[Rfam]
RNA sequence: AGCACUUUUACAUAUUGUGCUGACAGAUGUAAGUCCGACGUGCUUUUUUAAGCACGGCCUCAACCAAGGCUUUGGGAUUAC
Numbered sequence: 001a002g003c004a005c006u007u008u009u010a011c012a013u014a015u016u017g018u019g020c021u022g023a024c025a026g027a028u029g030u031a032a033g034u035c036c037g038a039c040g041u042g043c044u045u046u047u048u049u050a051a052g053c054a055c056g057g058c059c060u061c062a063a064c065c066a067a068g069g070c071u072u073u074g075g076g077a078u079u080a081c
Stems, first nucleotide, its partner, number of pairs: 001021005029081004035076002040055005056071004
Shown here is an 81-nucleotide sequence, a member of the family "S15-Methanomicrobia ribosomal protein leader". For this family Rfam cites "Discovery of 20 novel ribosomal leader candidates in bacteria and archaea" (Eckert and Weinberg, BMC Microbiol, 2020).